The record is a 105-nucleotide sequence from Rhizobium album, which matches "EcpR1" in Rfam. For this family Rfam cites "Deep sequencing uncovers numerous small RNAs on all four replicons of the plant pathogen Agrobacterium tumefaciens" (Wilms et al., RNA Biol, 2012). About the family: Perviously named SmelC291, SmrC10, or Sra33. According to its overproduction phenotype it was renamed Elongated Cell Phenotype RNA1. Induced by stress,EcpR1 negatively regulates cell cycle master regulatory genes dnaA and gcrA at post-transcriptional level by base pairing between its strongly conserved GC-rich loop and the target mRNAs. Gene Ontology terms of the family: regulation of translation in response to stress, negative regulation of cell cycle and mRNA binding. Rfam classes the family as a small RNA.
[Rfam]
RNA sequence: UUACCCCAUGAUGCUCAGGUCCGCCGCAUCUCCUGGGUCGUGGGGUUGGCCGGUUGAUAUGCUACACGCGGUUCCUCGUGCCGCUGCAUGUCAACCGGCCCCCUU
Dot-bracket structure: ..((((((((...((((((............)))))).)))))))).(((((((((((...............................))))))))))).....